[Rfam]
RNA: Alphaproteobacteria transfer-messenger RNA
RNA sequence: CCCCUUGCCCCUUAUCAACCAUAUGCCUAUAUUUGUCUUGUUCGGGCUUGCCCGGACUAUGGACAUAAACGCGCUCGUAAUAAGCGGAUCGGACCCGGGGGCGGUACCCGGCGGCUCCACCAGAUCACCCUCGUUGGGGGACCAUGGGGCCGAAAUAGGAUCGACGAACGUCUAAAGGGGUUAUGCUUUGUCUCGGUGAGCUACCACCGAUAUCGGUGCAAAUUGUACAGUUGCCAACGACAACCGUGCUCCGGUCGCUCUGGCUGCGUAAGCAGUUCGAGAGAUCGAAAAUUAAGUCCUUGCGCCUAGCCGCGUAAGGCGGGGUUCGCAGGUACCUGGCAACAGAAACCUGCACU
Number, nucleotide and partner (000 for none) at each position: 001c000002c000003c000004c000005u000006u000007g000008c000009c000010c000011c000012u000013u000014a000015u000016c000017a000018a000019c000020c000021a000022u000023a000024u000025g000026c000027c000028u000029a000030u000031a000032u000033u000034u000035g000036u000037c000038u000039u000040g057041u056042u055043c054044g053045g052046g051047c000048u000049u000050g000051c046052c045053c044054g043055g042056a041057c040058u000059a000060u000061g193062g192063a191064c190065a189066u000067a000068a000069a000070c000071g186072c185073g181074c180075u179076c178077g000078u000079a000080a000081u000082a000083a000084g000085c170086g169087g000088a000089u167090c166091g165092g000093a000094c000095c111096c110097g109098g108099g107100g000101g000102c000103g000104g000105u000106a000107c099108c098109c097110g096111g095112c152113g151114g150115c149116u148117c147118c146119a000120c000121c000122a000123g000124a000125u000126c000127a000128c000129c000130c000131u000132c000133g000134u000135u000136g000137g000138g000139g000140g000141a000142c000143c000144a000145u000146g118147g117148g116149g115150c114151c113152g112153a000154a000155a000156u000157a000158g000159g000160a000161u000162c000163g000164a000165c091166g090167a089168a000169c086170g085171u000172c000173u000174a000175a000176a000177g000178g076179g075180g074181u073182u000183a000184u000185g072186c071187u000188u000189u065190g064191u063192c062193u061194c209195g208196g207197u206198g000199a000200g219201c218202u000203a217204c216205c215206a197207c196208c195209g194210a000211u000212a000213u000214c000215g205216g204217u203218g201219c200220a000221a000222a000223u000224u000225g000226u000227a000228c000229a000230g000231u000232u000233g000234c000235c000236a000237a000238c000239g000240a000241c000242a000243a000244c000245c000246g000247u000248g000249c000250u000251c000252c000253g000254g000255u000256c000257g000258c000259u000260c000261u000262g000263g000264c000265u000266g000267c000268g000269u000270a000271a000272g000273c000274a000275g000276u000277u000278c000279g000280a000281g000282a000283g000284a000285u000286c000287g000288a000289a000290a000291a000292u000293u000294a000295a000296g000297u000298c000299c000300u000301u000302g000303c000304g000305c000306c000307u000308a000309g000310c000311c000312g000313c000314g000315u000316a000317a000318g000319g000320c000321g000322g337323g336324g335325u334326u000327c000328g353329c352330a351331g350332g349333u348334a325335c324336c323337u322338g000339g000340c000341a000342a000343c000344a000345g000346a000347a000348a333349c332350c331351u330352g329353c328354a000355c000356u000